[Rfam]
RNA: RNase MRP
RNA sequence: CGAGUCUUCCAUGCCUGUCUCUCGGGGUUACAUACGAGUUCCUGGUAACUCUUUGCUGUGAUAUUAUCAAAUUCUUCUGAAUUUGAUAAUUGUGUCACAUCUCAUACCCUGGGGAAAGUCCCCGGGCCUAGGAUAGAAAGUAUCAAGGCGUGAAAAGUAUUUCGGAUUUCUUGUUCGAAAUAUUCGCCUAUAUUCUGUGGAAAUUCUCAUGCAUUUAUAGAGAGUUUCAUUCGAAACGAAUUUAUAUGCAUGUGUCUGCGGAAACGUGCCAGAUAUCUAAGUUAUCGACAAGUUGUGAAAGGUGGUUGCUCUGUCGGAGUUCCACUUUCCUACACACAAUGGGGCUUACAUUGGGAAAUUC
Dot-bracket structure: .((((.(((((..[.[[[[..(((((((.......(.(.(.(.................................................).).).).......)))))))...(((.((((........((((.....))))......................................................(.(....(.(((((((..((......((((....))))...))....))))))).)..).)...........................]]]].]..(.(((..........................))).)..........)))))))....))))).))))
Numbered sequence: 001c002g003a004g005u006c007u008u009c010c011a012u013g014c015c016u017g018u019c020u021c022u023c024g025g026g027g028u029u030a031c032a033u034a035c036g037a038g039u040u041c042c043u044g045g046u047a048a049c050u051c052u053u054u055g056c057u058g059u060g061a062u063a064u065u066a067u068c069a070a071a072u073u074c075u076u077c078u079g080a081a082u083u084u085g086a087u088a089a090u091u092g093u094g095u096c097a098c099a100u101c102u103c104a105u106a107c108c109c110u111g112g113g114g115a116a117a118g119u120c121c122c123c124g125g126g127c128c129u130a131g132g133a134u135a136g137a138a139a140g141u142a143u144c145a146a147g148g149c150g151u152g153a154a155a156a157g158u159a160u161u162u163c164g165g166a167u168u169u170c171u172u173g174u175u176c177g178a179a180a181u182a183u184u185c186g187c188c189u190a191u192a193u194u195c196u197g198u199g200g201a202a203a204u205u206c207u208c209a210u211g212c213a214u215u216u217a218u219a220g221a222g223a224g225u226u227u228c229a230u231u232c233g234a235a236a237c238g239a240a241u242u243u244a245u246a247u248g249c250a251u252g253u254g255u256c257u258g259c260g261g262a263a264a265c266g267u268g269c270c271a272g273a274u275a276u277c278u279a280a281g282u283u284a285u286c287g288a289c290a291a292g293u294u295g296u297g298a299a300a301g302g303u304g305g306u307u308g309c310u311c312u313g314u315c316g317g318a319g320u321u322c323c324a325c326u327u328u329c330c331u332a333c334a335c336a337c338a339a340u341g342g343g344g345c346u347u348a349c350a351u352u353g354g355g356a357a358a359u360u361c
Stems, first nucleotide, its partner, number of pairs: 002361004007356005014292001016290004022112007036098001038096001040094001042092001116347003120344004132144004199259001201257001206254001208252007217241002225236004295330001297328003